[Rfam]
RNA sequence: AUGCUGUGAUGACAUUCUUUGUGUUCCGGAGACGGUCUCAGUUGAGGUCGUCUUUGACGGUUUCACAACCCUCUAAGAGCAU
Dot-bracket structure: ((((..........................................................................))))
RNA: Small nucleolar RNA U61